[Rfam]
RNA: c-di-AMP riboswitch aptamer (ydaO/yuaA leader)
Organism: Paenibacillus nuruki
RNA sequence: AAUGUCACAACGCUUAAUUUUCAUAUGCAUAUGAAAAGCGGGGGAACCAAUCGUUGAUGAAGAGGACUGAUAGGAAAUGAUCAGGAUCUACACAACAUGGGGUGAAUUCCGGUAUCUACCGGAACGGGCAAUCUUCCAGCCCGAAUCCGACAGCUAACUCCGUAAGCGUAUAAGGGAGAACUC
Dot-bracket structure: ..........((((...((((((((....))))))))((((((....((................................................))(((.....((((........))))..((((.........))))...))).........)))))).))))...............